[Rfam]
RNA sequence: CGAUCUCAUGUGGGAGAGCUCGCACCGUGCGUGCGGCGCCGAAGGGGCAAUUCCUCCCCGGAACCUCUCAGGCACCCAGGACCACGUGGAGCAG
Numbered sequence: 001c002g003a004u005c006u007c008a009u010g011u012g013g014g015a016g017a018g019c020u021c022g023c024a025c026c027g028u029g030c031g032u033g034c035g036g037c038g039c040c041g042a043a044g045g046g047g048c049a050a051u052u053c054c055u056c057c058c059c060g061g062a063a064c065c066u067c068u069c070a071g072g073c074a075c076c077c078a079g080g081a082c083c084a085c086g087u088g089g090a091g092c093a094g
Stems, first nucleotide, its partner, number of pairs: 006089008020036004038073003041069002045067003051061002
The family of this 94-nucleotide RNA from Mumia flava is "Glycine riboswitch aptamer".